About this RNA: Clostridiales-1 RNA: a 215-nucleotide RNA from Catenibacillus scindens. Pairs were carried over by alignment from the consensus structure, which is taken from published work. The family has 194 seed sequences and 1,172 matches in Rfam 15.1. A search with the family's covariance model found it, with a score of 102 bits.
RNA sequence: UGAUGCCAGGGUCAAAAGGUCAUGCUUUUCAUGCUUGCAUGAAAAAGCAUGACCUUUUGACCCGAAAAACAUGAGGUGCAGGACAUCCGGUGGAUGUCUGCUCUGCACCGACCGAAGCGGAGCGUAGACAGCAGCCAUUUUUCGAAGAAAAAUGAGCGAUUUCGAAUGUUUUUAGGAUUUCGAGAGCGCAGAGCGCGGAGAAAUCCGUGGCAUCA
Numbered sequence: 001u002g003a004u005g006c007c008a009g010g011g012u013c014a015a016a017a018g019g020u021c022a023u024g025c026u027u028u029u030c031a032u033g034c035u036u037g038c039a040u041g042a043a044a045a046a047g048c049a050u051g052a053c054c055u056u057u058u059g060a061c062c063c064g065a066a067a068a069a070c071a072u073g074a075g076g077u078g079c080a081g082g083a084c085a086u087c088c089g090g091u092g093g094a095u096g097u098c099u100g101c102u103c104u105g106c107a108c109c110g111a112c113c114g115a116a117g118c119g120g121a122g123c124g125u126a127g128a129c130a131g132c133a134g135c136c137a138u139u140u141u142u143c144g145a146a147g148a149a150a151a152a153u154g155a156g157c158g159a160u161u162u163c164g165a166a167u168g169u170u171u172u173u174a175g176g177a178u179u180u181c182g183a184g185a186g187c188g189c190a191g192a193g194c195g196c197g198g199a200g201a202a203a204u205c206c207g208u209g210g211c212a213u214c215a
Stems, first nucleotide, its partner, number of pairs: 001215007010062004016056013029042005065173008075163002175206007186196004